Annotation: Shown here is an 88-nucleotide sequence from Vibrio furnissii, a member of the family "Selenocysteine transfer RNA". A search with the family's covariance model found it, with a score of 60 bits. The family is grouped with related families in Rfam's "tRNA clan".
RNA sequence: GGAAUGAGAUGGGGUCUGGUGGCCCUCUUGGUCUUCAAAACCAAAGUGAGCCGCACAGGCUUUGGUAGGUUCGAUUCCUGCCUCUUCC
Numbered sequence: 001g002g003a004a005u006g007a008g009a010u011g012g013g014g015u016c017u018g019g020u021g022g023c024c025c026u027c028u029u030g031g032u033c034u035u036c037a038a039a040a041c042c043a044a045a046g047u048g049a050g051c052c053g054c055a056c057a058g059g060c061u062u063u064g065g066u067a068g069g070u071u072c073g074a075u076u077c078c079u080g081c082c083u084c085u086u087c088c
Stems, first nucleotide, its partner, number of pairs: 001088004006083001008081001011026006028044005048062004066080004